[Rfam]
RNA sequence: UUUAAGACCUUUUUUGUGGCUCCUGACCGAGCAGUAGUCCUGGUGAGACAAAAAUAGGGGCCCUAUUUUUGUCUCACCAGGACUACUGCUCGGUCAGGAGCCACAAAAAAGGUCUUAAAAUUG
Numbered sequence: 001u002u003u004a005a006g007a008c009c010u011u012u013u014u015u016g017u018g019g020c021u022c023c024u025g026a027c028c029g030a031g032c033a034g035u036a037g038u039c040c041u042g043g044u045g046a047g048a049c050a051a052a053a054a055u056a057g058g059g060g061c062c063c064u065a066u067u068u069u070u071g072u073c074u075c076a077c078c079a080g081g082a083c084u085a086c087u088g089c090u091c092g093g094u095c096a097g098g099a100g101c102c103a104c105a106a107a108a109a110a111g112g113u114c115u116u117a118a119a120a121u122u123g
Stems, first nucleotide, its partner, number of pairs: 010110007018102002021099038